[Rfam]
Annotation
The family of this 136-nucleotide RNA from Sinobaca qinghaiensis is "Ribosomal protein L20 leader". The family's consensus secondary structure was predicted with CMfinder. Its family is annotated with regulation of gene expression in the Gene Ontology. The source organism's lineage runs through Bacteria, Bacillota, Bacilli, Sporolactobacillaceae and Sinobaca. On this family, see Zengel and Lindahl, Prog Nucleic Acid Res Mol Biol 1994: "Diverse mechanisms for regulating ribosomal protein synthesis in Escherichia coli".

RNA sequence: CAAAGCAAGAAGAAGCACCCGCUUCUCACCUGAACGGCGCAACUCGCAGCUGCCAGGUAUUAUGGUAAAGCAAUAUAACCAUUUAUGAGACAGAUUUCAGGGUGCAUGGUACGUUCAUGCACCCUUUUUAUAUGCU
Numbered sequence: 001c002a003a004a005g006c007a008a009g010a011a012g013a014a015g016c017a018c019c020c021g022c023u024u025c026u027c028a029c030c031u032g033a034a035c036g037g038c039g040c041a042a043c044u045c046g047c048a049g050c051u052g053c054c055a056g057g058u059a060u061u062a063u064g065g066u067a068a069a070g071c072a073a074u075a076u077a078a079c080c081a082u083u084u085a086u087g088a089g090a091c092a093g094a095u096u097u098c099a100g101g102g103u104g105c106a107u108g109g110u111a112c113g114u115u116c117a118u119g120c121a122c123c124c125u126u127u128u129u130a131u132a133u134g135c136u
Base pairs, nucleotide, nucleotide: 011026012025013024014023015022016021028058029057030056036051037050038049039047040046101123102122103121104120105119106118107117108116109115